[Rfam]
RNA sequence: CUGGAAUGAUGCAGCUUAGCCAAAUCAGACAUCGAUGUGCUCCAUAAGGUGCUGUUAUCAAAGCUUGUCUUGGUUGUUAUUGAGUUUCAUUUUGGCUCUCUUGCGCUCCUUGAUCAAGCUUUGGGUCACAUGCCUUUUGUAGAAGCGCAUCCGUGUGAUGUUAAAAAUGGAGAUUGGAUGUUCACUGACCAGA
Numbered sequence: 001c002u003g004g005a006a007u008g009a010u011g012c013a014g015c016u017u018a019g020c021c022a023a024a025u026c027a028g029a030c031a032u033c034g035a036u037g038u039g040c041u042c043c044a045u046a047a048g049g050u051g052c053u054g055u056u057a058u059c060a061a062a063g064c065u066u067g068u069c070u071u072g073g074u075u076g077u078u079a080u081u082g083a084g085u086u087u088c089a090u091u092u093u094g095g096c097u098c099u100c101u102u103g104c105g106c107u108c109c110u111u112g113a114u115c116a117a118g119c120u121u122u123g124g125g126u127c128a129c130a131u132g133c134c135u136u137u138u139g140u141a142g143a144a145g146c147g148c149a150u151c152c153g154u155g156u157g158a159u160g161u162u163a164a165a166a167a168u169g170g171a172g173a174u175u176g177g178a179u180g181u182u183c184a185c186u187g188a189c190c191a192g193a
Base pairs, nucleotide, nucleotide: 001192002191003190004189
RNA: small nucleolar RNA snoR127
Organism: Castanea mollissima